[Rfam]
RNA sequence: AGUUUUCUUCGGGGCAGGGUGAAAUUCCCUACCGGCGGUUAUAGUCCGCGACUCCUUUCUUUGAAGGGACUGAUCUGGUGAAAUUCCGGAACCGACAGUUAAAGUCUGGAUGGGAGAAGAAAAUG
Numbered sequence: 001a002g003u004u005u006u007c008u009u010c011g012g013g014g015c016a017g018g019g020u021g022a023a024a025u026u027c028c029c030u031a032c033c034g035g036c037g038g039u040u041a042u043a044g045u046c047c048g049c050g051a052c053u054c055c056u057u058u059c060u061u062u063g064a065a066g067g068g069a070c071u072g073a074u075c076u077g078g079u080g081a082a083a084u085u086c087c088g089g090a091a092c093c094g095a096c097a098g099u100u101a102a103a104g105u106c107u108g109g110a111u112g113g114g115a116g117a118a119g120a121a122a123a124u125g
Stems, first nucleotide, its partner, number of pairs: 003123008017029003031105002033094002035049004044092002053069002074090005096108003

Shown here is a 125-nucleotide sequence from Chryseobacterium sp. P1-3, a member of the family "FMN riboswitch aptamer (RFN element)". The RFN element is a highly conserved domain that is found frequently in the 5'-untranslated regions of prokaryotic mRNAs that encode for flavin mononucleotide (FMN) biosynthesis and transport proteins. Lineage of the source: Bacteria > Bacteroidota > Flavobacteriales > Weeksellaceae > Chryseobacterium.